Background:
This 60-nucleotide sequence from Pyrobaculum aerophilum belongs to the Rfam family "Pyrobaculum sRNA 208". About the family: Non canonical pseudouridylation guide sRNA features. Predicted to target 23S U1978 in Pyrobaculum. The base pairs follow the family's consensus structure. Rfam links the family to the GO term RNA processing. The organism belongs to Pyrobaculum aerophilum, within Archaea.

RNA sequence: CGGGGCAGAGAGGCCCUAUUGGGGCCGCUGUGACAGCUCCGCGUACGCCAGUGGCCCAAU
Numbered sequence: 001c002g003g004g005g006c007a008g009a010g011a012g013g014c015c016c017u018a019u020u021g022g023g024g025c026c027g028c029u030g031u032g033a034c035a036g037c038u039c040c041g042c043g044u045a046c047g048c049c050a051g052u053g054g055c056c057c058a059a060u
Base pairs, nucleotide, nucleotide: 001041002040003039004038005037006036012026013025014024015023016022017021